[Rfam]
Nucleotides: 077
Stems, first nucleotide, its partner, number of pairs: 001077006
Number, partner (000 for none) and nucleotide at each position: 001077c002076a003075u004074c005073c006072c007000u008000g009000u010000g011000a012000a013000g014000a015000a016000u017000g018000c019000u020000u021000u022000g023000c024000a025000u026000g027000a028000u029000a030000a031000a032000a033000g034000u035000a036000g037000u038000g039000g040000a041000c042000u043000g044000a045000u046000c047000u048000u049000c050000a051000u052000u053000g054000a055000a056000g057000a058000g059000u060000a061000a062000a063000u064000g065000a066000u067000u068000c069000u070000g071000a072006g073005g074004g075003a076002u077001g